[Rfam]
RNA sequence: AGCUUUGCGCAGUGGCAAUAUCAUAGCCAAUGAGGUUUAUCCGAGGCACGAUUAUUGCUAAUUGAAUACCCCGCCAUGACGACUUGCAAUACAGUUGGCACGGGCAAUUUUUGACAGUCUCUAUGGAGA
Number, nucleotide and partner (000 for none) at each position: 001a000002g000003c000004u000005u000006u000007g000008c000009g000010c000011a000012g000013u000014g000015g000016c000017a000018a000019u000020a052021u051022c050023a000024u048025a000026g047027c046028c045029a000030a000031u000032g000033a000034g042035g041036u000037u000038u000039a000040u000041c035042c034043g000044a000045g028046g027047c026048a024049c000050g022051a021052u020053u000054a000055u000056u000057g000058c000059u000060a000061a000062u000063u000064g000065a000066a000067u000068a000069c000070c000071c000072c000073g105074c104075c103076a000077u100078g099079a000080c097081g096082a095083c094084u093085u000086g000087c000088a000089a000090u000091a000092c000093a084094g083095u082096u081097g080098g000099c078100a077101c000102g000103g075104g074105c073106a000107a000108u000109u000110u000111u000112u000113g000114a000115c000116a000117g000118u129119c128120u127121c126122u000123a000124u000125g000126g121127a120128g119129a118
The family of this 129-nucleotide sequence from Sapajus apella is "U4 spliceosomal RNA". Pairs were carried over by alignment from the consensus structure, which is taken from published work. The organism belongs to Sapajus, within Eukaryota. Rfam classes the family as a spliceosomal small nuclear RNA.